[Rfam]
RNA sequence: AACAGAGUAGGUUGUCUACGUAAAGUGCUUCUAGAUGGGAUGUCGCUAGAAGACGAAGUGACUUUCACGCGAUGGAUGAUCGCCUCCGCUGUU
Numbered sequence: 001a002a003c004a005g006a007g008u009a010g011g012u013u014g015u016c017u018a019c020g021u022a023a024a025g026u027g028c029u030u031c032u033a034g035a036u037g038g039g040a041u042g043u044c045g046c047u048a049g050a051a052g053a054c055g056a057a058g059u060g061a062c063u064u065u066c067a068c069g070c071g072a073u074g075g076a077u078g079a080u081c082g083c084c085u086c087c088g089c090u091g092u093u
Stems, first nucleotide, its partner, number of pairs: 001093005010081009019071003025054002028052007038087003042083001058068004